The record is a 143-nucleotide sequence from Mesocricetus auratus, which matches "Small nucleolar RNA SNORA43" in Rfam. The family has 21 seed sequences and 492 matches in Rfam 15.1. The family's RNA type in Rfam is H/ACA-box small nucleolar RNA. From the family's description: ACA43 is a member of the H/ACA class of snoRNA that guide the sites of modification of uridines to pseudouridines. It scores 130 bits against the family's covariance model. Its Rfam clan is "SNORA17 clan".
RNA sequence: GCUGCCCUUCAUCUGUCAGCGCUACGGGCAUAGCACGGCUACUCAGCUGUGCCUGUGACAUCGGGGCAAAGAGCAAGUGGCUAUUUCUACGCUCAGUGUUCAGAAGCCAGUGAGCACUAAGAAUGGUUUAUAGCCUAACAUUU
Numbered sequence: 001g002c003u004g005c006c007c008u009u010c011a012u013c014u015g016u017c018a019g020c021g022c023u024a025c026g027g028g029c030a031u032a033g034c035a036c037g038g039c040u041a042c043u044c045a046g047c048u049g050u051g052c053c054u055g056u057g058a059c060a061u062c063g064g065g066g067c068a069a070a071g072a073g074c075a076a077g078u079g080g081c082u083a084u085u086u087c088u089a090c091g092c093u094c095a096g097u098g099u100u101c102a103g104a105a106g107c108c109a110g111u112g113a114g115c116a117c118u119a120a121g122a123a124u125g126g127u128u129u130a131u132a133g134c135c136u137a138a139c140a141u142u143u
Stems, first nucleotide, its partner, number of pairs: 003068006024056006079135003087126003092121002097116006